[Rfam]
Nucleotides: 058
Stems, first nucleotide, its partner, number of pairs: 009050007026043006
Number, partner (000 for none) and nucleotide at each position: 001000a002000c003000a004000u005000g006000g007000c008000a009050c010049u011048c012047u013046u014045c015044a016000c017000u018000c019000g020000g021000a022000u023000c024000g025000u026043c027042c028041g029040g030039c031038a032000c033000g034000u035000a036000c037000c038031u039030g040029c041028c042027g043026g044015u045014g046013a047012a048011g049010g050009g051000a052000a053000u054000g055000g056000c057000g058000a

A member of the RNA family "msiK RNA" from Flavimobilis soli, 58 nucleotides long. A search with the family's covariance model found it, with a score of 58 bits. Rfam 15.1 lists 1,374 matches to the family in 1,364 species. The family's RNA type in Rfam is cis-regulatory element. The family's consensus secondary structure is taken from published work.